[Rfam]
RNA sequence: AACGACCGGUCGGACACCGACGUGCCCGACCCACAAGUGGAGGCUCCGAUCUCCCACCUGGCCGCCUUCAGGGGCGGCGGGUCACCGGUCAGACGGCGACCAUCGUUCCGUACGGACGAUGGAGCCGUCCGAGACGCGCCCCGCGGCCGACGCGGCGGUGCUCCGGUAUCGCGAGGAGCCCCGCCUGUGUCCCGUCGGGGCAUUUUUC
Numbered sequence: 001a002a003c004g005a006c007c008g009g010u011c012g013g014a015c016a017c018c019g020a021c022g023u024g025c026c027c028g029a030c031c032c033a034c035a036a037g038u039g040g041a042g043g044c045u046c047c048g049a050u051c052u053c054c055c056a057c058c059u060g061g062c063c064g065c066c067u068u069c070a071g072g073g074g075c076g077g078c079g080g081g082u083c084a085c086c087g088g089u090c091a092g093a094c095g096g097c098g099a100c101c102a103u104c105g106u107u108c109c110g111u112a113c114g115g116a117c118g119a120u121g122g123a124g125c126c127g128u129c130c131g132a133g134a135c136g137c138g139c140c141c142c143g144c145g146g147c148c149g150a151c152g153c154g155g156c157g158g159u160g161c162u163c164c165g166g167u168a169u170c171g172c173g174a175g176g177a178g179c180c181c182c183g184c185c186u187g188u189g190u191c192c193c194g195u196c197g198g199g200g201c202a203u204u205u206u207u208c
Stems, first nucleotide, its partner, number of pairs: 004090006012027002028083005034060002037057004041052002061078007092129005100122008138201006145192002151189003154185005160179005
The family of this 208-nucleotide RNA sequence from Streptomyces tirandamycinicus is "Streptomyces RNA 1601". Rfam's curators write: Identified by deep sequencing of transcriptome at the end of exponential growth phase. Rfam classes the family as a small RNA. Lineage of the source: Bacteria > Actinomycetota > Actinomycetes > Kitasatosporales > Streptomyces.